Shown here is a 111-nucleotide sequence from Pongo abelii, a member of the family "Y RNA". The family's consensus secondary structure is taken from published work. Taxonomically the source falls in Pongo (Eukaryota, Bilateria, Deuterostomia, Hominoidea). The match comes from Rfam's covariance-model search (48 bits).
[Rfam]
Nucleotides: 111
Base pairs, nucleotide, nucleotide: 001107002106003105004104005103006102008100010099011098014095015094016090017089019088020087021086022085034073035072
Number, partner (000 for none) and nucleotide at each position: 001107g002106g003105c004104u005103g006102g007000g008100c009000c010099a011098a012000a013000g014095g015094u016090a017089g018000c019088u020087g021086a022085g023000u024000u025000a026000u027000c028000u029000c030000a031000g032000u033000u034073g035072a036000u037000u038000g039000u040000u041000c042000a043000u044000a045000g046000u047000c048000a049000g050000u051000a052000a053000c054000a055000g056000a057000u058000c059000a060000a061000a062000c063000u064000c065000a066000u067000u068000c069000g070000u071000c072035u073034c074000u075000g076000u077000u078000c079000c080000c081000c082000c083000u084000u085022c086021u087020c088019a089017c090016u091000a092000c093000u094015g095014c096000a097000u098011u099010u100008g101000a102006c103005u104004a105003g106002u107001c108000u109000a110000a111000a